[Rfam]
RNA sequence: CCCGCAGCUAGACGGAAAGACCCCGUGAACCUUAACUGCAGCUUGGUAUUGGGUUUAGGCCCGGCAUGCGUAGCGUAGGUGGGAGGCCGUGAACCCCGCUUCUCGGAGCGGGGGGAGCCGUCGAUGAAACACCACCCUUGCCGUGCUUGAAUUCUAACCCGGUCCGGUGAACCCCGGCCGGGGACCGUGCUAAGUGGGCAGUUUGAUUGGGGCGAUCUCCUCCCAAACGGUAACGGAGGAGCCCAACGGUCCCCUCAGCCCGGUCGGCAAUCGGGCCUCGAGCGCAAACGCAGAAGGGGGCUUGACUGCGAGCCCGAUGGGGCGAGCAGGUGCGAAAGCAGGGGUUAGUGAUCCGGCGGUCCCGGAUGGAAGGGCCGUCGCUCAACAGAUAAAAGGUACUCCGGGGAUAACAGGCUUAUCUCCUCUGAGCGUUCAUAGCGGCGAGGAGGUUUGGCACCUCGAUGUCGGCUCAUCACGUCCUGGGGGUGGAGAAGCUCCCAAGGGUUCGGCUGUUCGCCGAUGAAAGUGGUACGUGAGCUGGGUUUAGACCGUCGUGAGACAGGUCGGUCCCUAUCUGCUGCGGGCGGA
Number, nucleotide and partner (000 for none) at each position: 001c584002c583003c582004g581005c580006a579007g578008c577009u000010a576011g575012a574013c000014g571015g570016a000017a000018a000019g000020a000021c000022c405023c404024c403025g402026u000027g401028a400029a397030c396031c395032u394033u393034a000035a202036c201037u200038g199039c000040a000041g000042c194043u193044u192045g191046g190047u189048a188049u000050u000051g154052g153053g152054u151055u150056u149057a148058g147059g146060c145061c000062c143063g142064g141065c140066a139067u000068g137069c000070g000071u000072a000073g000074c000075g000076u000077a000078g136079g135080u134081g133082g132083g000084a000085g119086g118087c117088c000089g000090u000091g000092a000093a000094c113095c112096c111097c110098g109099c108100u107101u106102c000103u000104c000105g000106g101107a100108g099109c098110g097111g096112g095113g094114g000115g000116a000117g087118c086119c085120g000121u000122c000123g000124a000125u000126g000127a000128a000129a000130c000131a000132c082133c081134a080135c079136c078137c068138u000139u066140g065141c064142c063143g062144u000145g060146c059147u058148u057149g056150a055151a054152u053153u052154c051155u000156a000157a000158c182159c181160c180161g000162g179163u000164c177165c176166g175167g174168u000169g000170a000171a000172c000173c000174c167175c166176g165177g164178c000179c162180g160181g159182g158183g000184a000185c000186c000187g000188u048189g047190c046191u045192a044193a043194g042195u000196g000197g000198g000199c038200a037201g036202u035203u000204u000205g217206a216207u215208u214209g000210g000211g000212g000213c000214g208215a207216u206217c205218u240219c239220c238221u237222c236223c235224c000225a000226a000227a000228c000229g000230g000231u000232a000233a000234c000235g223236g222237a221238g220239g219240a218241g386242c000243c343244c342245a000246a000247c000248g000249g301250u300251c299252c298253c297254c296255u281256c280257a000258g276259c275260c274261c273262g272263g271264u000265c000266g000267g000268c000269a000270a000271u263272c262273g261274g260275g259276c258277c000278u000279c000280g256281a255282g291283c290284g000285c000286a000287a000288a000289c000290g283291c282292a000293g000294a000295a000296g254297g253298g252299g251300g250301c249302u000303u000304g000305a000306c329307u328308g327309c326310g000311a000312g323313c322314c321315c000316g000317a000318u000319g000320g000321g314322g313323c312324g000325a000326g309327c308328a307329g306330g000331u340332g339333c338334g000335a000336a000337a000338g333339c332340a331341g000342g244343g243344g000345u000346u000347a000348g000349u000350g000351a000352u000353c000354c380355g379356g378357c377358g376359g375360u374361c000362c373363c372364g000365g000366a000367u000368g000369g000370a000371a000372g363373g362374g360375c359376c358377g357378u356379c355380g354381c000382u000383c000384a000385a000386c241387a000388g000389a000390u000391a000392a000393a033394a032395g031396g030397u029398a000399c000400u028401c027402c025403g024404g023405g022406g000407a000408u000409a000410a000411c000412a000413g000414g455415c454416u453417u000418a452419u449420c448421u447422c446423c445424u444425c443426u000427g000428a000429g439430c438431g000432u000433u000434c000435a000436u000437a000438g430439c429440g000441g000442c000443g425444a424445g423446g422447a421448g420449g419450u000451u000452u418453g416454g415455c414456a000457c000458c000459u000460c000461g000462a000463u000464g000465u000466c541467g539468g538469c537470u536471c533472a530473u529474c528475a527476c526477g000478u000479c504480c503481u000482g499483g498484g497485g496486g495487u494488g000489g000490a000491g000492a000493a000494g487495c486496u485497c484498c483499c482500a000501a000502g000503g480504g479505u000506u520507c519508g518509g517510c516511u000512g000513u000514u000515c000516g510517c509518c508519g507520a506521u000522g000523a000524a000525a000526g476527u475528g474529g473530u472531a000532c000533g471534u000535g000536a470537g469538c468539u467540g000541g466542g000543u000544u000545u000546a000547g565548a564549c563550c562551g560552u559553c558554g000555u000556g000557a000558g553559a552560c551561a000562g550563g549564u548565c547566g000567g000568u000569c000570c015571c014572u000573a000574u012575c011576u010577g008578c007579u006580g005581c004582g003583g002584g001585c000586g000587g000588a000

A member of the RNA family "Bacterial large subunit ribosomal RNA" from Urbifossiella limnaea, 588 nucleotides of a longer RNA.
Clan: LSU clan.
The organism belongs to Urbifossiella, within Bacteria.